[Rfam]
RNA sequence: AGCUUAUCAGUGAUGUUCCUCAAAAAAAGUCUGAACAUCUGAGUUUAUCAGUGAUUUAGUGUUGUUACUGAGAUAAGCU
Numbered sequence: 001a002g003c004u005u006a007u008c009a010g011u012g013a014u015g016u017u018c019c020u021c022a023a024a025a026a027a028a029g030u031c032u033g034a035a036c037a038u039c040u041g042a043g044u045u046u047a048u049c050a051g052u053g054a055u056u057u058a059g060u061g062u063u064g065u066u067a068c069u070g071a072g073a074u075a076a077g078c079u
Base pairs, nucleotide, nucleotide: 002078003077004076005075006074007073008072